[Rfam]
RNA sequence: ACUUCCACUGCUGCAUGGAGGGCACAUGUAUCUUCAAUGGGACUUGAAAUUCUGGAGAACUGCCUUUGUGAAAAACUGGCAGUAAUUUCUUUAAAUUCCAUCUCUUAGUUUUCCAUGGGAACAUCAAGACACC
Numbered sequence: 001a002c003u004u005c006c007a008c009u010g011c012u013g014c015a016u017g018g019a020g021g022g023c024a025c026a027u028g029u030a031u032c033u034u035c036a037a038u039g040g041g042a043c044u045u046g047a048a049a050u051u052c053u054g055g056a057g058a059a060c061u062g063c064c065u066u067u068g069u070g071a072a073a074a075a076c077u078g079g080c081a082g083u084a085a086u087u088u089c090u091u092u093a094a095a096u097u098c099c100a101u102c103u104c105u106u107a108g109u110u111u112u113c114c115a116u117g118g119g120a121a122c123a124u125c126a127a128g129a130c131a132c133c
Base pairs, nucleotide, nucleotide: 006079010076012074016070018067019066020065021064022063023062024061027059039053040052041051042050086131088129089128090127091126096121097120098119099118
Rfam assigns this 133-nucleotide RNA sequence from Nyctereutes procyonoides to the family "ODC internal ribosome entry site (IRES)". Taxonomically the source falls in Nyctereutes (Eukaryota, Metazoa, Eumetazoa, Canidae). Gene Ontology term of the family: ribosome binding. The match comes from Rfam's covariance-model search (100 bits).